[Rfam]
RNA sequence: AGGCAGGGCAUCCCUGCCCUUCCUUAAACCGUCCCUUCGGGGAU
Numbered sequence: 001a002g003g004c005a006g007g008g009c010a011u012c013c014c015u016g017c018c019c020u021u022c023c024u025u026a027a028a029c030c031g032u033c034c035c036u037u038c039g040g041g042g043a044u
Stems, first nucleotide, its partner, number of pairs: 002023002005020005031044005
About this RNA
Shown here is a 44-nucleotide RNA sequence, a member of the family "PhotoRC-I RNA". The base pairs follow the family's consensus structure, which is taken from published work. By type it is a cis-regulatory element.